[Rfam]
RNA sequence: GGACCGUACGCGGGAGAGCGUAGCAAGUUAAACCUUGCUGCCGCCGAAGGUGAAAUACCCGAAAUCUCUCAGGCAAAAGGACCGUGUACGUUAU
Numbered sequence: 001g002g003a004c005c006g007u008a009c010g011c012g013g014g015a016g017a018g019c020g021u022a023g024c025a026a027g028u029u030a031a032a033c034c035u036u037g038c039u040g041c042c043g044c045c046g047a048a049g050g051u052g053a054a055a056u057a058c059c060c061g062a063a064a065u066c067u068c069u070c071a072g073g074c075a076a077a078a079g080g081a082c083c084g085u086g087u088a089c090g091u092u093a094u
Stems, first nucleotide, its partner, number of pairs: 006089008020041007043074003046070002050068001052066001056061001
Description
The family of this 94-nucleotide RNA from Sulfitobacter undariae is "Glycine riboswitch aptamer". Rfam links the family to the GO term glycine biosynthetic process.